[Rfam]
RNA sequence: GCCGGCGAGAACCAUGUGAAUCAAGUAGUGUAGUGAUUCACAUGGUUUUCACAA
Numbered sequence: 001g002c003c004g005g006c007g008a009g010a011a012c013c014a015u016g017u018g019a020a021u022c023a024a025g026u027a028g029u030g031u032a033g034u035g036a037u038u039c040a041c042a043u044g045g046u047u048u049u050c051a052c053a054a
Stems, first nucleotide, its partner, number of pairs: 005052001007050017